[Rfam]
Record summary:
This 79-nucleotide sequence from Molossus molossus belongs to the Rfam family "mir-450 microRNA precursor family". It scores 83 bits against the family's covariance model.

RNA sequence: ACAAAAUUAGUUUUGCAAUAUGUUCCUGAAUAUAUAAUAUACGUGUAUUGGGGACAUUUUGCAUUCAUAGUUUAGUAUC
Numbered sequence: 001a002c003a004a005a006a007u008u009a010g011u012u013u014u015g016c017a018a019u020a021u022g023u024u025c026c027u028g029a030a031u032a033u034a035u036a037a038u039a040u041a042c043g044u045g046u047a048u049u050g051g052g053g054a055c056a057u058u059u060u061g062c063a064u065u066c067a068u069a070g071u072u073u074a075g076u077a078u079c
Base pairs, nucleotide, nucleotide: 004073005072006071007070008069009068014063015062016061017060018059020057021056022055023054024053025052026051027050029049030048031047032046033045034044
The organism belongs to Molossus, within Eukaryota.
Rfam links the family to the GO terms RISC complex and miRNA-mediated post-transcriptional gene silencing.
Pairs were carried over by alignment from the consensus structure, which was predicted with RNAalifold.